[Rfam]
A member of the RNA family "mir-8830 microRNA precursor family" from Canis lupus, 95 nucleotides long.
RNA sequence: CAGGACCGGCUUCCCUCGUCGCUGAGGCAGGACCGACUUCCCUCAUGGCCGAGGCAGGACCGGCUUUGCUCAUGGCCGAGGCAGGACCGGCUUCG
Number, nucleotide and partner (000 for none) at each position: 001c000002a000003g092004g091005a000006c090007c089008g088009g087010c000011u085012u084013c000014c081015c080016u079017c078018g077019u075020c074021g073022c000023u072024g071025a070026g069027g000028c000029a066030g065031g064032a000033c063034c062035g061036a000037c058038u057039u056040c000041c054042c053043u052044c051045a000046u000047g000048g000049c000050c000051g044052a043053g042054g041055c000056a039057g038058g037059a000060c000061c035062g034063g033064c031065u030066u029067u000068g000069c026070u025071c024072a023073u021074g020075g019076c000077c018078g017079a016080g015081g014082c000083a000084g012085g011086a000087c009088c008089g007090g006091c004092u003093u000094c000095g000

Taxonomically the source falls in Canis lupus (Eukaryota, Chordata, Gnathostomata, Canidae).